[Rfam]
The family of this 75-nucleotide RNA sequence from Myotis myotis is "mir-9229 microRNA precursor family".
RNA sequence: AGACACCCUUCUGGGGCUAGACUUGCUUCAGUGGAGCUUUGGUGUUCACUGAGUCUGCCCCCUGGGUGUGUCCCU
Numbered sequence: 001a002g003a004c005a006c007c008c009u010u011c012u013g014g015g016g017c018u019a020g021a022c023u024u025g026c027u028u029c030a031g032u033g034g035a036g037c038u039u040u041g042g043u044g045u046u047c048a049c050u051g052a053g054u055c056u057g058c059c060c061c062c063u064g065g066g067u068g069u070g071u072c073c074c075u
Stems, first nucleotide, its partner, number of pairs: 002072005008066003013061005020055003028052008036043002

Its family is annotated with RISC complex and miRNA-mediated post-transcriptional gene silencing in the Gene Ontology. Rfam 15.1 lists 27,225 matches to the family in 9 species.